[Rfam]
Nucleotides: 083
Base pairs, nucleotide, nucleotide: 002081003080005078006077007076008075011073014072015071017069018068019067020066021065022064023063024062025061026060027059028058029056030054031053033049036046037045038044
Number, partner (000 for none) and nucleotide at each position: 001000u002081c003080c004000u005078c006077c007076g008075c009000a010000g011073u012000g013000c014072c015071u016000g017069a018068c019067g020066g021065g022064a023063g024062g025061c026060g027059g028058a029056g030054a031053g032000c033049g034000a035000a036046c037045g038044a039000g040000g041000g042000c043000g044038u045037c046036g047000g048000c049033c050000a051000u052000u053031u054030u055000g056029u057000g058028u059027c060026u061025g062024u063023u064022u065021c066020c067019u068018g069017u070000g071015g072014g073011a074000g075008g076007c077006g078005g079000u080003g081002g082000u083000g